[Rfam]
RNA sequence: GGCCGGUGAUGCACAAGAAUUGUCCGUACCAUCUGAGAUCUCUUUCCUUGAUGUGAGAUUCAUCUCUAGCUUUCUGAGGCCU
Numbered sequence: 001g002g003c004c005g006g007u008g009a010u011g012c013a014c015a016a017g018a019a020u021u022g023u024c025c026g027u028a029c030c031a032u033c034u035g036a037g038a039u040c041u042c043u044u045u046c047c048u049u050g051a052u053g054u055g056a057g058a059u060u061c062a063u064c065u066c067u068a069g070c071u072u073u074c075u076g077a078g079g080c081c082u
Stems, first nucleotide, its partner, number of pairs: 001081004
Annotation: small nucleolar RNA snoR117: an 82-nucleotide RNA from Vitis vinifera. The source organism's lineage runs through Eukaryota, Streptophytina, eudicotyledons, Vitales and Vitis. Rfam classes the family as a C/D-box small nucleolar RNA. Rfam 15.1 lists 419 matches to the family in 211 species.